[Rfam]
RNA sequence: AGCUCUGGUUUCUCUACAAAGCGUAAAAGCCUUUCGCCCUUUUACUAAAGACUUCCGUGAGAGGAACACCCCAAGAGUUCAGUGAAUUUUUUGGUGGGUCUUUGCUGUUUGGUAGGAG
Number, nucleotide and partner (000 for none) at each position: 001a000002g000003c077004u076005c075006u074007g000008g067009u066010u065011u064012c063013u062014c061015u060016a000017c059018a058019a000020a000021g000022c000023g000024u000025a000026a000027a054028a053029g052030c000031c050032u049033u048034u047035c000036g000037c000038c000039c000040u000041u000042u000043u000044a000045c000046u000047a034048a033049a032050g031051a000052c029053u028054u027055c000056c000057g000058u018059g017060a015061g014062a013063g012064g011065a010066a009067c008068a000069c000070c000071c000072c000073a000074a006075g005076a004077g003078u000079u000080c000081a000082g000083u000084g000085a000086a000087u000088u000089u000090u000091u000092u000093g000094g000095u000096g000097g000098g000099u117100c116101u115102u114103u000104g000105c000106u000107g000108u000109u000110u000111g000112g000113u000114a102115g101116g100117a099118g000
The record is a 118-nucleotide sequence from Merluccius polli, which matches "U5 spliceosomal RNA" in Rfam. The source organism's lineage runs through Eukaryota, Metazoa, Craniata, Euteleosteomorpha and Merluccius. U5 RNA is a component of both types of known spliceosome. The precise function of this molecule is unknown, though it is known that the 5' loop is required for splice site selection and p220 binding, and that both the 3' stem-loop and the Sm site are important for Sm protein binding and cap methylation. A search with the family's covariance model found it, with a score of 62 bits. Pairs were carried over by alignment from the consensus structure, which is taken from published work. Its family is annotated with spliceosomal tri-snRNP complex assembly and U5 snRNP in the Gene Ontology. Rfam classes the family as a spliceosomal small nuclear RNA.